Purine riboswitch aptamer: a 102-nucleotide sequence from Lottiidibacillus patelloidae. Taxonomically the source falls in Lottiidibacillus (Bacteria, Bacilli, Caryophanales, Bacillaceae). Gene Ontology term of the family: purine nucleobase biosynthetic process. The match comes from Rfam's covariance-model search (93 bits).

Nucleotides: 102
Base pairs, nucleotide, nucleotide: 018088019087020086021085022084023083024082025081029049031047032046033045034044035043058078059077060076061075062074063073064072
Number, partner (000 for none) and nucleotide at each position: 001000a002000c003000u004000a005000a006000a007000u008000a009000a010000u011000g012000a013000a014000a015000a016000a017000c018088c019087u020086c021085u022084c023083a024082u025081a026000u027000a028000a029049u030000a031047u032046u033045g034044g035043g036000g037000a038000u039000a040000u041000g042000g043035c044034c045033c046032a047031a048000a049029a050000g051000u052000u053000u054000c055000u056000a057000c058078c059077u060076a061075g062074u063073u064072a065000c066000c067000g068000u069000a070000a071000a072064u073063g074062a075061c076060u077059a078058g079000a080000c081025u082024a083023u084022g085021a086020g087019a088018g089000g090000a091000a092000g093000u094000a095000c096000u097000g098000u099000c100000g101000u102000g